[Rfam]
RNA: Bacillus sRNA ncr1575
RNA sequence: UAAUAUUAAACGAAAGGAAUGAUGGGUGGACAAUGGAUAACUAACCUAAUUUUUAACAUUUGAAAUAGUAUAUUUCAGAUAAUAAAACUUAGGAUUAGUCUGCCCAUUUUUCUAUAUACUAAUUAGCUGUGAUGCUAACUAGCUGAAAGGCUAAAUAGCUUAUUUGAGUACGGCAAAAAUGCGAUUUGACUAAUCCUUCCAAAAUUGUUUGGGAGGAUUUUUUA
Numbered sequence: 001u002a003a004u005a006u007u008a009a010a011c012g013a014a015a016g017g018a019a020u021g022a023u024g025g026g027u028g029g030a031c032a033a034u035g036g037a038u039a040a041c042u043a044a045c046c047u048a049a050u051u052u053u054u055a056a057c058a059u060u061u062g063a064a065a066u067a068g069u070a071u072a073u074u075u076c077a078g079a080u081a082a083u084a085a086a087a088c089u090u091a092g093g094a095u096u097a098g099u100c101u102g103c104c105c106a107u108u109u110u111u112c113u114a115u116a117u118a119c120u121a122a123u124u125a126g127c128u129g130u131g132a133u134g135c136u137a138a139c140u141a142g143c144u145g146a147a148a149g150g151c152u153a154a155a156u157a158g159c160u161u162a163u164u165u166g167a168g169u170a171c172g173g174c175a176a177a178a179a180u181g182c183g184a185u186u187u188g189a190c191u192a193a194u195c196c197u198u199c200c201a202a203a204a205u206u207g208u209u210u211g212g213g214a215g216g217a218u219u220u221u222u223u224a
Stems, first nucleotide, its partner, number of pairs: 016112004023106004029100003042097003046093002049090001052087003058080009119166001121164001126159005192219011